[Rfam]
RNA sequence: UGUCAAGUAUAAUCAGCGUCAUUUUGGCGGGUGGAUUUCUUUUGCCCAGAAAAAGGUGAAAGAAAAAUG
Numbered sequence: 001u002g003u004c005a006a007g008u009a010u011a012a013u014c015a016g017c018g019u020c021a022u023u024u025u026g027g028c029g030g031g032u033g034g035a036u037u038u039c040u041u042u043u044g045c046c047c048a049g050a051a052a053a054a055g056g057u058g059a060a061a062g063a064a065a066a067a068u069g
Base pairs, nucleotide, nucleotide: 010063013060017058018057019056020055022054023053024052025051029047031045032044033043034042035041